[Rfam]
RNA: Cyano-2 RNA
RNA sequence: AGCAGUACGGGGAGAGCGACCCUGAUGCUGGCAGAAGAGUUUCCCCGUUGAGAAGAUCAGCGGGGAAAUCUCUCUGUGCCUGAAAGGUCUGAAAGCUUUAGACAUUCAGUGCAUCAGGCACAAAUCAAUGUGCCGUCGCGAGCAUAUUUACGCGGAAACCGCAUCGCUCGGGCAGGACCUGUUUCUCCUCGCGGUUCCGUGGCUCCA
Numbered sequence: 001a002g003c004a005g006u007a008c009g010g011g012g013a014g015a016g017c018g019a020c021c022c023u024g025a026u027g028c029u030g031g032c033a034g035a036a037g038a039g040u041u042u043c044c045c046c047g048u049u050g051a052g053a054a055g056a057u058c059a060g061c062g063g064g065g066a067a068a069u070c071u072c073u074c075u076g077u078g079c080c081u082g083a084a085a086g087g088u089c090u091g092a093a094a095g096c097u098u099u100a101g102a103c104a105u106u107c108a109g110u111g112c113a114u115c116a117g118g119c120a121c122a123a124a125u126c127a128a129u130g131u132g133c134c135g136u137c138g139c140g141a142g143c144a145u146a147u148u149u150a151c152g153c154g155g156a157a158a159c160c161g162c163a164u165c166g167c168u169c170g171g172g173c174a175g176g177a178c179c180u181g182u183u184u185c186u187c188c189u190c191g192c193g194g195u196u197c198c199g200u201g202g203c204u205c206c207a
Base pairs, nucleotide, nucleotide: 003030004029005028006027008024009023010022011021012020031077032076033075034074035073037071041067042066043065044064045063046062047061048060049059050058152200153199154198155197156196158195159194160193161192162191170190171189172188174186175185176184177183